[Rfam]
RNA: Group II catalytic intron D1-D4-2
Organism: Nitrosomonas nitrosa
RNA sequence: GGAGGAAUCGACCCUCCGAUAUCGGCGUUCAGGUGCUGGUAUCAAACCACUUCAAGCGGCUGCUGUAAAAGGCGGUGGUCGUGAGCGUUGAAGAAAGUCAGAGGAUAAUAAAAUCUGGCGAGG
Numbered sequence: 001g002g003a004g005g006a007a008u009c010g011a012c013c014c015u016c017c018g019a020u021a022u023c024g025g026c027g028u029u030c031a032g033g034u035g036c037u038g039g040u041a042u043c044a045a046a047c048c049a050c051u052u053c054a055a056g057c058g059g060c061u062g063c064u065g066u067a068a069a070a071g072g073c074g075g076u077g078g079u080c081g082u083g084a085g086c087g088u089u090g091a092a093g094a095a096a097g098u099c100a101g102a103g104g105a106u107a108a109u110a111a112a113a114u115c116u117g118g119c120g121a122g123g
Base pairs, nucleotide, nucleotide: 001017002016003015004014005013018043019042020041021040022039023038025036026035027034028033047123048122050093051092052091053090054089055088056082057081059079060078061077063075064074065073066072097119098118099117100116101115102114